Selenocysteine transfer RNA: a 91-nucleotide RNA from Fidelibacterota bacterium MT.SAG.3. Taxonomically the source falls in Fidelibacterota (Bacteria, Pseudomonadati). Rfam links the family to the GO term triplet codon-amino acid adaptor activity.

[Rfam]
RNA sequence: GGGAGUGGAUGUGACCCUGGUGGGCGCCACGGUCUUCAAAACCGUUGGGACGAAGCAAUUCGUCCGCUAGAUUCGAUUUCUAGACACUUCC
Numbered sequence: 001g002g003g004a005g006u007g008g009a010u011g012u013g014a015c016c017c018u019g020g021u022g023g024g025c026g027c028c029a030c031g032g033u034c035u036u037c038a039a040a041a042c043c044g045u046u047g048g049g050a051c052g053a054a055g056c057a058a059u060u061c062g063u064c065c066g067c068u069a070g071a072u073u074c075g076a077u078u079u080c081u082a083g084a085c086a087c088u089u090c091c
Stems, first nucleotide, its partner, number of pairs: 001091007011027003015024003029045005048065005068082004